[Rfam]
RNA sequence: ACAGACAGGCUGGGGUGCCGCGGCCUUUCGGGCCGCGGCUGAGAUCAUACCCACGAACCUGAACAGGGUCAUUCCUGCGAAGGGAGCCGCGAGACGUGACUC
Numbered sequence: 001a002c003a004g005a006c007a008g009g010c011u012g013g014g015g016u017g018c019c020g021c022g023g024c025c026u027u028u029c030g031g032g033c034c035g036c037g038g039c040u041g042a043g044a045u046c047a048u049a050c051c052c053a054c055g056a057a058c059c060u061g062a063a064c065a066g067g068g069u070c071a072u073u074c075c076u077g078c079g080a081a082g083g084g085a086g087c088c089g090c091g092a093g094a095c096g097u098g099a100c101u102c
Stems, first nucleotide, its partner, number of pairs: 008088003011053004016047001017039009058083003064077004